[Rfam]
RNA sequence: AAACAACCCCCUAUGUAUUGGAUCUUUAACAGUUUUGGCCCCCAAUGCCACUUUUGACUUAGUCUUCGCUGAUGUGGCACCCACAAUGGUCGACACGUGGUACCUCACUAGGUGCCAAGUCAGCGAAGACUAAGUCAAAAAUGGUCUUGGGGGCCAAAACUGCCAAAGAUCCAAUACAUAGGGAGCUGUUU
Numbered sequence: 001a002a003a004c005a006a007c008c009c010c011c012u013a014u015g016u017a018u019u020g021g022a023u024c025u026u027u028a029a030c031a032g033u034u035u036u037g038g039c040c041c042c043c044a045a046u047g048c049c050a051c052u053u054u055u056g057a058c059u060u061a062g063u064c065u066u067c068g069c070u071g072a073u074g075u076g077g078c079a080c081c082c083a084c085a086a087u088g089g090u091c092g093a094c095a096c097g098u099g100g101u102a103c104c105u106c107a108c109u110a111g112g113u114g115c116c117a118a119g120u121c122a123g124c125g126a127a128g129a130c131u132a133a134g135u136c137a138a139a140a141a142u143g144g145u146c147u148u149g150g151g152g153g154c155c156a157a158a159a160c161u162g163c164c165a166a167a168g169a170u171c172c173a174a175u176a177c178a179u180a181g182g183g184a185g186c187u188g189u190u191u
Base pairs, nucleotide, nucleotide: 001191002190004188005187007185012180013179014178015177016176017175018174019173020172021171022170023169024168025167026166027165030162031161032160033159034158035157036156037155038154039153040152041151042150043149044148045147072120073119075117076116077115078114079113080112081111
Dot-bracket structure: ((.((.(....((((((((((((((((..((((((((((((((((..........................((.(((((((.............................))))))).))..........................))))))))))))))))..))))))))))))))))....).)).))